[Rfam]
Rfam assigns this 294-nucleotide RNA from Sulfuriferula plumbiphila to the family "Bacterial RNase P class A".
RNA sequence: GAAGCUGGCCAGACAGUCGCCGCCCCGCGCAACCGGGGGGGAGGAAAGUCCGGGCUCCAUAGAGCAGGAUGCCGGUUAAUGGCCGGCCGCCGUGAGGCGAGGAACAGGGCCACAGAGACGAGCCGGUUUAGUCCGGAGUGAAACGCGGUAACCUCCAUCCGGAGCAAGGCCAAAUAGGCAGGCGAUGAAGCGGCUCGCUGAGCCUGCGGGUAGGCUGCUUGAGCCGUCGGGUAACCGGCGGCCUAGAGGAAUGACUGUCCACGACAAAACCCGGCUUAUCGGCCAGCUUCACCU
Dot-bracket structure: ((((((((((((((((((.((.(((((......))))).))....[[[.[[[[[((((...[[[[.((((((((((.....)))))(((((....)))).)((...(((((...................................)))..)))))))))))))...((((......((((((.....(((.]]]])))..)))))).....))))......((((((((....))))))))..........)))))))..........]]]]]]]].).))))))))))....

The match comes from Rfam's covariance-model search (250 bits).